[Rfam]
RNA: miR-430 microRNA precursor family
Organism: Sander lucioperca
RNA sequence: CUUGUUACCCUAACUUGAGCAUUGACUUGACUGUUGAAUUCAGUAAGUGCUACUUGUUGGGCCAGCUUAA
Dot-bracket structure: ...(((..(((.((..(((((((.(((..............))).)))))).)..)).)))..)))....